[Rfam]
RNA: raiA RNA
RNA sequence: CUGUGAGUGGUUCUGUGGUUGAAAGUCGAUGCCAGUCGCGGGCGAAACGACCCACGUAAGGUUCCCUAAUCGGAACUGAGCAUGGCGCGGUUUAGAAGUAAGUCCUGACUCGGUGUGACCAAAGUGGUCAUGGCGAACUCAGGCAGGUGUGGGGUCAAAGACCAGGUCAGCACUCACAG
Numbered sequence: 001c002u003g004u005g006a007g008u009g010g011u012u013c014u015g016u017g018g019u020u021g022a023a024a025g026u027c028g029a030u031g032c033c034a035g036u037c038g039c040g041g042g043c044g045a046a047a048c049g050a051c052c053c054a055c056g057u058a059a060g061g062u063u064c065c066c067u068a069a070u071c072g073g074a075a076c077u078g079a080g081c082a083u084g085g086c087g088c089g090g091u092u093u094a095g096a097a098g099u100a101a102g103u104c105c106u107g108a109c110u111c112g113g114u115g116u117g118a119c120c121a122a123a124g125u126g127g128u129c130a131u132g133g134c135g136a137a138c139u140c141a142g143g144c145a146g147g148u149g150u151g152g153g154g155u156c157a158a159a160g161a162c163c164a165g166g167u168c169a170g171c172a173c174u175c176a177c178a179g
Stems, first nucleotide, its partner, number of pairs: 001179009013170003016164005029150003032042001034092007051085002059077002062074003083157001104143005110136003
Dot-bracket structure: (((((((((...((((((((........((([.(((((((.]........((......((.(((.......))).)).....[)))))))))...........(((((.(((.....................)))..)))))....)))......]..)))))...))))))))))))